A member of the RNA family "L31-Actinobacteria ribosomal protein leader" from Actinacidiphila alni, 47 nucleotides long. The match comes from Rfam's covariance-model search (46 bits). Pairs were carried over by alignment from the consensus structure, which is taken from published work. It is annotated as a cis-regulatory leader.
Nucleotides: 047
Stems, first nucleotide, its partner, number of pairs: 003047003007043004015037005021032003
Number, partner (000 for none) and nucleotide at each position: 001000c002000u003047g004046g005045c006000c007043c008042c009041g010040g011000u012000u013000c014000a015037c016036g017035u018034g019033c020000u021032c022031g023030c024000a025000a026000a027000c028000c029000c030023g031022c032021g033019g034018u035017g036016c037015g038000a039000c040010c041009c042008g043007g044000c045005g046004c047003c